A member of the RNA family "7SK RNA" from Amazona aestiva, 329 nucleotides long. The source organism's lineage runs through Eukaryota, Archosauria, Telluraves, Psittacidae and Amazona. The literature on the family includes a 2002 paper in Curr Biol by Blencowe, "Transcription: surprising role for an elusive small nuclear RNA". It scores 278 bits against the family's covariance model. About the family: 7SK was discovered as an abundant small nuclear RNA in the mid-70s but a possible function has only recently been suggested.
[Rfam]
RNA sequence: GGAUGUAAGGGUGAUCUGGCUGCGACAUCUGUCAUCCCACUGAUCACCAGGGUUGAUUUGGCUGAUCUGGCUAGCUGGGUGGGUGUCCCCUUCCUCCCUCACCACUCCACAUGUGUCCCUCCCGAAGCUGCAUGGUCGGUCGAAGAGGACAACCUUCCCCGAUACAGGCAGUACCGUUCAUUGGUCAUGGGUAUACGGUAGCUGUGCUCCCCUGCUGGAACCUCCAAACAAGCUCCAGGUCCAGCUGUAGGAGAACGUAAGGUAGUCAACCUCCCAAGACUGCAGACAUGUCCAAGCUAGGCAGUGCACGUGGCAGUCUGCCAUUUCCU
Numbered sequence: 001g002g003a004u005g006u007a008a009g010g011g012u013g014a015u016c017u018g019g020c021u022g023c024g025a026c027a028u029c030u031g032u033c034a035u036c037c038c039a040c041u042g043a044u045c046a047c048c049a050g051g052g053u054u055g056a057u058u059u060g061g062c063u064g065a066u067c068u069g070g071c072u073a074g075c076u077g078g079g080u081g082g083g084u085g086u087c088c089c090c091u092u093c094c095u096c097c098c099u100c101a102c103c104a105c106u107c108c109a110c111a112u113g114u115g116u117c118c119c120u121c122c123c124g125a126a127g128c129u130g131c132a133u134g135g136u137c138g139g140u141c142g143a144a145g146a147g148g149a150c151a152a153c154c155u156u157c158c159c160c161g162a163u164a165c166a167g168g169c170a171g172u173a174c175c176g177u178u179c180a181u182u183g184g185u186c187a188u189g190g191g192u193a194u195a196c197g198g199u200a201g202c203u204g205u206g207c208u209c210c211c212c213u214g215c216u217g218g219a220a221c222c223u224c225c226a227a228a229c230a231a232g233c234u235c236c237a238g239g240u241c242c243a244g245c246u247g248u249a250g251g252a253g254a255a256c257g258u259a260a261g262g263u264a265g266u267c268a269a270c271c272u273c274c275c276a277a278g279a280c281u282g283c284a285g286a287c288a289u290g291u292c293c294a295a296g297c298u299a300g301g302c303a304g305u306g307c308a309c310g311u312g313g314c315a316g317u318c319u320g321c322c323a324u325u326u327c328c329u
Stems, first nucleotide, its partner, number of pairs: 001108003005102002008099004013093002018090002024087010035074001037070003042067004047061002117171001118168003122139004128134001140162003147158003201271001203269001207265002210262002213259003222253004228248003294329001296327001300322003303317001305315003